[Rfam]
RNA: Small nucleolar RNA snoR136
RNA sequence: GUGCUUCAAUAAGUCUGUUUUGUCGAAUAGAAAAAUUAAUUUAUCUACUCGACAUUCUUGUUUUAGCUAUAAAAACUGUUUCCCUCGCUAUCCAUUCUUGAUUUGUUAUGUCAUUUCUGGACGUUGGGUAACUAUAUAA
Numbered sequence: 001g002u003g004c005u006u007c008a009a010u011a012a013g014u015c016u017g018u019u020u021u022g023u024c025g026a027a028u029a030g031a032a033a034a035a036u037u038a039a040u041u042u043a044u045c046u047a048c049u050c051g052a053c054a055u056u057c058u059u060g061u062u063u064u065a066g067c068u069a070u071a072a073a074a075a076c077u078g079u080u081u082c083c084c085u086c087g088c089u090a091u092c093c094a095u096u097c098u099u100g101a102u103u104u105g106u107u108a109u110g111u112c113a114u115u116u117c118u119g120g121a122c123g124u125u126g127g128g129u130a131a132c133u134a135u136a137u138a139a
Stems, first nucleotide, its partner, number of pairs: 001070002003067003008062006016054002023052004028047003078132003082128003086123002091121004101109001